[Rfam]
RNA sequence: ACCUGUGAAGGCUUCAGAAAGUAGACAAACCCACUUUUAUGCUCAAAAAGCAUGAAUAGAUCUGCUGAUUUGACAUCAGGUUUCCUAUUUCUGCAUGUGGGGUGAGCCAAAACAGCUGCUUUUUGUUGUGGUAAAAGUGGUAUCAAUACUGACAGUGAUGCCCAUACAGAUUUUUGAGACCUUAGGCUCAAAACUAAGGCAUGGAAUUCCAAAGGAAGUCGCUGCCGUAAGCACCACCUGAGAAAAAGUAUCACAAUAGACUGUUUCUUCAGUCUAAGACUUGCUUAGUUGA
Dot-bracket structure: (.(((...(((.((.(((.((.(..(((...((.(....(..................)....).))..)))..........).))......(.(.(((..((........))..).))).)(((....((.((.(((.(..(.(........................(.(((((((.((...))))))))).)..((((..((.((((...)))).))..)))).)..)..).........(......)........))).)).)).)))))).)).))).)..)).)..
RNA: Streptococcus sRNA 8